The record is a 76-nucleotide RNA sequence from Callorhinchus milii, which matches "mir-147 microRNA precursor family" in Rfam.
RNA sequence: UAUCAAUCUCCCGGAAUCAUUUCUGCACAAACUCGGUACUGGAACAGUGUGCGGAAAUGCUUCUGGUACAUUUUUA
Numbered sequence: 001u002a003u004c005a006a007u008c009u010c011c012c013g014g015a016a017u018c019a020u021u022u023c024u025g026c027a028c029a030a031a032c033u034c035g036g037u038a039c040u041g042g043a044a045c046a047g048u049g050u051g052c053g054g055a056a057a058u059g060c061u062u063c064u065g066g067u068a069c070a071u072u073u074u075u076a
Stems, first nucleotide, its partner, number of pairs: 001076002005072003009068001011066006018059012032047002
Rfam 15.1 lists 757 matches to the family in 593 species. A search with the family's covariance model found it, with a score of 76 bits.